[Rfam]
RNA sequence: AUCGAGGCUGGAGUCACACUUGGGUAUCAGCUAUUGCCUUAGUGUGCGAGAGUCCUCGAAGAGUCACUGCGAACCUUAUCCAUGGGCUGUGGCCCUCAUGGCAUAGUCAGUCACCAGGUUAGUGACGUGC
Number, nucleotide and partner (000 for none) at each position: 001a000002u059003c058004g057005a056006g055007g053008c052009u051010g000011g000012a000013g047014u000015c046016a045017c044018a043019c042020u041021u000022g000023g038024g037025u036026a035027u000028c000029a000030g000031c000032u000033a000034u000035u026036g025037c024038c023039u000040u000041a020042g019043u018044g017045u016046g015047c013048g000049a000050g000051a009052g008053u007054c000055c006056u005057c004058g003059a002060a000061g000062a000063g000064u000065c000066a000067c000068u000069g000070c122071g000072a120073a119074c118075c117076u116077u000078a000079u000080c000081c000082a111083u110084g000085g108086g107087c000088u105089g104090u103091g102092g000093c100094c000095c000096u000097c000098a000099u000100g093101g000102c091103a090104u089105a088106g000107u086108c085109a000110g083111u082112c000113a000114c000115c000116a076117g075118g074119u073120u072121a000122g070123u000124g000125a000126c000127g000128u000129g000130c000